[Rfam]
RNA sequence: CUGGCUUGUGAUUGUCCAAACGCAAUUCUUGUCUCUCCACCGAGAGUUGAGUCUGGACGUCAAGAGCCGG
Numbered sequence: 001c002u003g004g005c006u007u008g009u010g011a012u013u014g015u016c017c018a019a020a021c022g023c024a025a026u027u028c029u030u031g032u033c034u035c036u037c038c039a040c041c042g043a044g045a046g047u048u049g050a051g052u053c054u055g056g057a058c059g060u061c062a063a064g065a066g067c068c069g070g
Stems, first nucleotide, its partner, number of pairs: 002069006009062004014058005021051001023049009
A member of the RNA family "mir-219 microRNA precursor family" from Laticauda laticaudata, 70 nucleotides long.
It scores 67 bits against the family's covariance model.
The family has 92 seed sequences and 1,318 matches in Rfam 15.1.
Pairs were carried over by alignment from the consensus structure, which was predicted with RNAalifold.
Taxonomically the source falls in Laticauda (Eukaryota, Opisthokonta, Sauria, Episquamata).
A reference for the family is Lim et al. (2003), "Vertebrate microRNA genes", Science.